This 147-nucleotide RNA from Trichonephila clavata belongs to the Rfam family "Group II catalytic intron D1-D4-7". About the family: Group II introns are found in rRNA, tRNA and mRNA of organelles in fungi, plants and protists, and also in mRNA in bacteria. A search with the family's covariance model found it, with a score of 106 bits. The literature on the family includes a 2001 paper in Trends Genet by Bonen and Vogel, "The ins and outs of group II introns". The source organism's lineage runs through Eukaryota, Metazoa, Araneae, Araneomorphae and Trichonephila. Its family is annotated with Group II intron splicing in the Gene Ontology.

RNA sequence: CCAGAUGUUUUGCCAUCUGAGUCUACGCAUCAGUGCGAAUCGGGUAACCGGUUGGGCCGAGCGAUGCGGACAAUGAACCUCCUCUUGAAAAAGAAGAUGCGUAAUCGUAAGAGGAGCAUAAACUACAAGCAUCAUGUGGUUGGAGGG
Number, nucleotide and partner (000 for none) at each position: 001c000002c019003a018004g017005a016006u015007g014008u000009u000010u000011u000012g000013c000014c007015a006016u005017c004018u003019g002020a000021g000022u000023c000024u000025a000026c000027g067028c066029a065030u064031c063032a000033g057034u056035g000036c055037g000038a053039a052040u051041c050042g049043g048044g000045u000046a000047a000048c043049c042050g041051g040052u039053u038054g000055g036056g034057c033058c000059g000060a000061g000062c000063g031064a030065u029066g028067c027068g000069g000070a000071c000072a000073a000074u000075g000076a000077a000078c000079c000080u000081c096082c000083u094084c093085u092086u091087g000088a000089a000090a000091a086092a085093g084094a083095a000096g081097a119098u118099g117100c116101g000102u000103a000104a000105u112106c111107g000108u000109a000110a000111g106112a105113g000114g000115a000116g100117c099118a098119u097120a000121a000122a140123c139124u138125a137126c136127a135128a000129g000130c000131a000132u000133c000134a000135u127136g126137u125138g124139g123140u122141u000142g000143g000144a000145g000146g000147g000